[Rfam]
RNA sequence: CAAGUCAACGCGCUUUGCUGAUGUGGCAGAAAAUCGCGUCCACGUAAGCGCGAUUUGUGUCCACAUCAGCAAAGCGCGCUAACGUGG
Numbered sequence: 001c002a003a004g005u006c007a008a009c010g011c012g013c014u015u016u017g018c019u020g021a022u023g024u025g026g027c028a029g030a031a032a033a034u035c036g037c038g039u040c041c042a043c044g045u046a047a048g049c050g051c052g053a054u055u056u057g058u059g060u061c062c063a064c065a066u067c068a069g070c071a072a073a074g075c076g077c078g079c080u081a082a083c084g085u086g087g
Base pairs, nucleotide, nucleotide: 001086002085004083005082007080009078010077011076012075013074014073015072016071017070018069019068020067021066023064024063025062026061029058031056032055033054034053035052036051037050038049
RNA: MIR7486 microRNA precursor family